MIR2655 microRNA precursor family: a 251-nucleotide sequence from Trifolium subterraneum. Rfam links the family to the GO terms miRNA-mediated post-transcriptional gene silencing and RISC complex. Rfam 15.1 lists 892 matches to the family in 5 species.
[Rfam]
RNA sequence: CUCUUAUCUUUUAAAAAUUUCAAGUUGAUCCCUUAUUUUUUUUUAGGUUUCAAGUUGGUCCCUUCCGUCAAUUUUGUUACUAUUACCGUUAAAUUUGGACACGUGUCAUCUGUCCAAGUGUGCCACAUGUCCAAAUUAGUUUGCCAAGUGUCCAAAUUUAAUGGAAAAAGUUAAAAAAAUGACGGAAGGGACCAACUUGAAACCUAAAAUAAAUAUAAGGGACCAACUUGAAACUUUUAAAAGAUAAGGGA
Numbered sequence: 001c002u003c004u005u006a007u008c009u010u011u012u013a014a015a016a017a018u019u020u021c022a023a024g025u026u027g028a029u030c031c032c033u034u035a036u037u038u039u040u041u042u043u044u045a046g047g048u049u050u051c052a053a054g055u056u057g058g059u060c061c062c063u064u065c066c067g068u069c070a071a072u073u074u075u076g077u078u079a080c081u082a083u084u085a086c087c088g089u090u091a092a093a094u095u096u097g098g099a100c101a102c103g104u105g106u107c108a109u110c111u112g113u114c115c116a117a118g119u120g121u122g123c124c125a126c127a128u129g130u131c132c133a134a135a136u137u138a139g140u141u142u143g144c145c146a147a148g149u150g151u152c153c154a155a156a157u158u159u160a161a162u163g164g165a166a167a168a169a170g171u172u173a174a175a176a177a178a179a180u181g182a183c184g185g186a187a188g189g190g191a192c193c194a195a196c197u198u199g200a201a202a203c204c205u206a207a208a209a210u211a212a213a214u215a216u217a218a219g220g221g222a223c224c225a226a227c228u229u230g231a232a233a234c235u236u237u238u239a240a241a242a243g244a245u246a247a248g249g250g251a
Stems, first nucleotide, its partner, number of pairs: 002249007023228003027224001029222001031220006038213003041209002044206003